Shown here is a 54-nucleotide RNA from Coregonus sp. 'balchen', a member of the family "UnaL2 LINE 3' element". Rfam's curators write: The eel long interspersed element (LINE) UnaL2 and its partner short interspersed element (SINE) share a conserved 3' tail containing a stem-loop that is critical for their retrotransposition. Presumably, the first step of retrotransposition is the recognition of their 3' tails by UnaL2-encoded reverse transcriptase. The solution structure of a 17-nucleotide RNA derived from the 3' tail of UnaL2 was determined by NMR. Rfam 15.1 lists 493,311 matches to the family in 99 species. It scores 58 bits against the family's covariance model. On this family, see Baba et al., RNA 2004: "Solution structure of an RNA stem-loop derived from the 3' conserved region of eel LINE UnaL2". The base pairs follow the family's consensus structure, which is taken from published work.

RNA sequence: UGCACUCACUACUGUAAAUCGCUCUGGAUAAGAGCAUCUACUAAAAGACAAAAA
Numbered sequence: 001u002g003c004a005c006u007c008a009c010u011a012c013u014g015u016a017a018a019u020c021g022c023u024c025u026g027g028a029u030a031a032g033a034g035c036a037u038c039u040a041c042u043a044a045a046a047g048a049c050a051a052a053a054a
Stems, first nucleotide, its partner, number of pairs: 013043001014041003021035005